This 153-nucleotide sequence from Microbacterium bovistercoris belongs to the Rfam family "ALIL pseudoknot".
The source organism's lineage runs through Bacteria, Actinomycetota, Actinomycetes, Micrococcales and Microbacterium.
RNA sequence: AGCGUUUUUCGCCGCGGCGGAGCUCGACCGCAAGCUGAAGUAGCCGAGGUGCCGACCGCGGUGCUCAUCGAGUACAUCGACGAGCACCGCGACCGGUUCGGGGUCGAGCCGAUCUGCCAGGUCCUGCGUGACGCGGACGUCCAGAUCGCCCCG
Numbered sequence: 001a002g003c004g005u006u007u008u009u010c011g012c013c014g015c016g017g018c019g020g021a022g023c024u025c026g027a028c029c030g031c032a033a034g035c036u037g038a039a040g041u042a043g044c045c046g047a048g049g050u051g052c053c054g055a056c057c058g059c060g061g062u063g064c065u066c067a068u069c070g071a072g073u074a075c076a077u078c079g080a081c082g083a084g085c086a087c088c089g090c091g092a093c094c095g096g097u098u099c100g101g102g103g104u105c106g107a108g109c110c111g112a113u114c115u116g117c118c119a120g121g122u123c124c125u126g127c128g129u130g131a132c133g134c135g136g137a138c139g140u141c142c143a144g145a146u147c148g149c150c151c152c153g
Stems, first nucleotide, its partner, number of pairs: 017059004099153005110148002113145004